[Rfam]
RNA sequence: UACACCGCGAAGUGGAAUCUGAAGGAAGUCGGCGGCAAAACUCUGGUCUGACGAACAGAAACUGCAUAUAAGGCAUAUGUUUGUGGGUAAGUUUGCAAUACAAAACGAAGCCCAAAACUAUUCAAAACAGGCGAUGUAAAUGUAGUAGAUAGAUGGAGUGAUGAUAAAUGGG
Numbered sequence: 001u002a003c004a005c006c007g008c009g010a011a012g013u014g015g016a017a018u019c020u021g022a023a024g025g026a027a028g029u030c031g032g033c034g035g036c037a038a039a040a041c042u043c044u045g046g047u048c049u050g051a052c053g054a055a056c057a058g059a060a061a062c063u064g065c066a067u068a069u070a071a072g073g074c075a076u077a078u079g080u081u082u083g084u085g086g087g088u089a090a091g092u093u094u095g096c097a098a099u100a101c102a103a104a105a106c107g108a109a110g111c112c113c114a115a116a117a118c119u120a121u122u123c124a125a126a127a128c129a130g131g132c133g134a135u136g137u138a139a140a141u142g143u144a145g146u147a148g149a150u151a152g153a154u155g156g157a158g159u160g161a162u163g164a165u166a167a168a169u170g171g172g
Stems, first nucleotide, its partner, number of pairs: 001016001003014003029171003035165001040159006046150005062145006073137003078133007085113004091106004
Source information:
A member of the RNA family "Group II catalytic intron D1-D4-3" from Clostridium putrefaciens, 172 nucleotides long. It scores 131 bits against the family's covariance model. A reference for the family is Bonen and Vogel (2001), "The ins and outs of group II introns", Trends Genet. About the family: Group II introns are found in rRNA, tRNA and mRNA of organelles in fungi, plants and protists, and also in mRNA in bacteria. The source organism's lineage runs through Bacteria, Bacillota, Clostridia, Eubacteriales and Clostridium.